[Rfam]
RNA sequence: GUCCAGAAGACAGUGAUGUAUUUUCCAAGCACAUAUCUGACUGAUCUGUGAGGAAAUGAACUGUUUCUGAGUUUUCUGGAC
Dot-bracket structure: ((((((.((((...........................................................)))).))))))
RNA: Small nucleolar RNA SNORD121A
Organism: Pelodiscus sinensis